[Rfam]
RNA sequence: UGCUACCAAAUCCUAUCUCCACCUCCACGUGGUGAUCGCUGGGAGCUUUUUCUUAGCGAAAAACUGCAGACGGAGAAGG
Numbered sequence: 001u002g003c004u005a006c007c008a009a010a011u012c013c014u015a016u017c018u019c020c021a022c023c024u025c026c027a028c029g030u031g032g033u034g035a036u037c038g039c040u041g042g043g044a045g046c047u048u049u050u051u052c053u054u055a056g057c058g059a060a061a062a063a064c065u066g067c068a069g070a071c072g073g074a075g076a077a078g079g
Base pairs, nucleotide, nucleotide: 012079013078014077016075018073019072021033022032023031044065045064047062048061049060050059052058
The family of this 79-nucleotide sequence from Hermetia illucens is "drz-agam-1 ribozyme". On this family, see Webb et al., Science 2009: "Widespread occurrence of self-cleaving ribozymes". Its family is annotated with catalytic activity in the Gene Ontology.